[Rfam]
RNA: c-di-AMP riboswitch aptamer (ydaO/yuaA leader)
RNA sequence: CUCGGGCGGGCGCCGCGAGCCGGGGACCCAGGUCUGUUUUGGGGUGAAUCGGCAGUCACUGAAAGUGACUGCGGUAGGGCGCCCUUCGCCCGAACCCGUCAGCUAACCCGGUAGGCGGCUGCGGAGAAGGGCC
Numbered sequence: 001c002u003c004g005g006g007c008g009g010g011c012g013c014c015g016c017g018a019g020c021c022g023g024g025g026a027c028c029c030a031g032g033u034c035u036g037u038u039u040u041g042g043g044g045u046g047a048a049u050c051g052g053c054a055g056u057c058a059c060u061g062a063a064a065g066u067g068a069c070u071g072c073g074g075u076a077g078g079g080c081g082c083c084c085u086u087c088g089c090c091c092g093a094a095c096c097c098g099u100c101a102g103c104u105a106a107c108c109c110g111g112u113a114g115g116c117g118g119c120u121g122c123g124g125a126g127a128a129g130g131g132c133c
Stems, first nucleotide, its partner, number of pairs: 002018003019112006029041002042097003050074001052072009077091004